Shown here is a 46-nucleotide RNA sequence from Pullulanibacillus pueri, a member of the family "PreQ1 (pre queuosine) riboswitch aptamer". The source organism's lineage runs through Bacteria, Bacillota, Caryophanales, Sporolactobacillaceae and Pullulanibacillus. Rfam's curators write: This family is a bacterial riboswitch that binds to the metabolite preQ1, an intermediate in the biosynthesis of the modified nucleoside queuosine from GTP. One example of this riboswitch is located in the leader of the Bacillus subtilis ykvJKLM (queCDEF) operon which encodes four genes necessary for queuosine production. For this family Rfam cites "Identification of four genes necessary for biosynthesis of the modified nucleoside queuosine" (Reader et al., J Biol Chem, 2004). Rfam 15.1 lists 873 matches to the family in 692 species.
RNA sequence: AUGAUAGAGGUUCUUAGCCAAACCCUCUAUAAAAAACUAAGGAUAU
Number, nucleotide and partner (000 for none) at each position: 001a000002u000003g000004a000005u000006a028007g027008a026009g025010g024011u000012u000013c000014u000015u039016a038017g000018c000019c000020a000021a000022a000023c000024c010025c009026u008027c007028u006029a000030u000031a000032a000033a000034a000035a000036a000037c000038u016039a015040a000041g000042g000043a000044u000045a000046u000